[Rfam]
RNA sequence: UGGCGCUUGAGGCUUUUUGCCUUAUGGCGUUUCAGGUGGUUUGUGCCGCGUUGUGAGGCAGAAAGCAGAAAGCCCCGAGUAAUUUUUCAAUUAACCCGAGGCCCACUGUAUGCCUAGACAACAUCAGUAUGGCUUCUUACCGUGCAUUAUGCAAGGAGGCGUAACCCAUG
Numbered sequence: 001u002g003g004c005g006c007u008u009g010a011g012g013c014u015u016u017u018u019g020c021c022u023u024a025u026g027g028c029g030u031u032u033c034a035g036g037u038g039g040u041u042u043g044u045g046c047c048g049c050g051u052u053g054u055g056a057g058g059c060a061g062a063a064a065g066c067a068g069a070a071a072g073c074c075c076c077g078a079g080u081a082a083u084u085u086u087u088c089a090a091u092u093a094a095c096c097c098g099a100g101g102c103c104c105a106c107u108g109u110a111u112g113c114c115u116a117g118a119c120a121a122c123a124u125c126a127g128u129a130u131g132g133c134u135u136c137u138u139a140c141c142g143u144g145c146a147u148u149a150u151g152c153a154a155g156g157a158g159g160c161g162u163a164a165c166c167c168a169u170g
Stems, first nucleotide, its partner, number of pairs: 002075002005073004012066012026052005077097001079095002081092004098136005105128003110124003141161002

Background:
The record is a 170-nucleotide RNA sequence from Mangrovibacter sp. MFB070, which matches "sok antitoxin (CssrC)" in Rfam. From the family's description: Also identified in Shigella as CssrC. Its family is annotated with mRNA binding in the Gene Ontology. The match comes from Rfam's covariance-model search (96 bits). NCBI's taxonomy places the organism under Bacteria, Pseudomonadati, Pseudomonadota, Enterobacterales, Mangrovibacter. It is annotated as an antitoxin RNA.